[Rfam]
Nucleotides: 066
Stems, first nucleotide, its partner, number of pairs: 001064004009053005022048003030041003
Number, partner (000 for none) and nucleotide at each position: 001064c002063c003062u004061u005000u006000g007000g008000a009053g010052a011051g012050u013049u014000a015000u016000a017000c018000c019000a020000a021000a022048c023047u024046a025000a026000a027000g028000u029000a030041g031040c032039u033000u034000u035000u036000a037000u038000u039032a040031g041030c042000a043000a044000a045000a046024u047023a048022g049013g050012a051011c052010u053009c054000u055000g056000u057000g058000a059000a060000u061004a062003a063002g064001g065000a066000a